This 71-nucleotide RNA sequence from Streptococcus pluranimalium belongs to the Rfam family "Fluoride riboswitch aptamer (crcB RNA motif)". The base pairs follow the family's consensus structure, which is taken from published work.

[Rfam]
RNA sequence: GACAUAACUGGGAAUGAUUGUCUCCCUAGGGAAACCUAAACCGCUGAAAAGCUGAUGACGUCUACGCUUUU
Numbered sequence: 001g002a003c004a005u006a007a008c009u010g011g012g013a014a015u016g017a018u019u020g021u022c023u024c025c026c027u028a029g030g031g032a033a034a035c036c037u038a039a040a041c042c043g044c045u046g047a048a049a050a051g052c053u054g055a056u057g058a059c060g061u062c063u064a065c066g067c068u069u070u071u
Stems, first nucleotide, its partner, number of pairs: 010026004016062003020059003043052003